[Rfam]
RNA: Pistol ribozyme
RNA sequence: ACUCGUCUGGGCGAGUAUAAAAAGUAAUUAGGCCCAGAGCGUCCUGGAGCUUCCAGGGGUUUAG
Numbered sequence: 001a002c003u004c005g006u007c008u009g010g011g012c013g014a015g016u017a018u019a020a021a022a023a024g025u026a027a028u029u030a031g032g033c034c035c036a037g038a039g040c041g042u043c044c045u046g047g048a049g050c051u052u053c054c055a056g057g058g059g060u061u062u063a064g
Stems, first nucleotide, its partner, number of pairs: 001016004006038006025063003032040001042058006